The record is an 87-nucleotide RNA from Medicago truncatula, which matches "MIR2617 microRNA precursor family" in Rfam.
Rfam links the family to the GO terms RISC complex and miRNA-mediated post-transcriptional gene silencing.
NCBI's taxonomy places the organism under Eukaryota, Viridiplantae, Pentapetalae, Hologalegina, Medicago.
RNA sequence: AUGUAUUGUGACAUGCCCGUUUGGGUUAUUACUCUGAUGAAUUAUUUAUUAAUUAAUUGCUUUUGGAUAAAGGGGUGUUACAAUUGG
Numbered sequence: 001a002u003g004u005a006u007u008g009u010g011a012c013a014u015g016c017c018c019g020u021u022u023g024g025g026u027u028a029u030u031a032c033u034c035u036g037a038u039g040a041a042u043u044a045u046u047u048a049u050u051a052a053u054u055a056a057u058u059g060c061u062u063u064u065g066g067a068u069a070a071a072g073g074g075g076u077g078u079u080a081c082a083a084u085u086g087g
Base pairs, nucleotide, nucleotide: 002087005084006083007082008081009080010079011078012077013076014075016074017073018072020070021069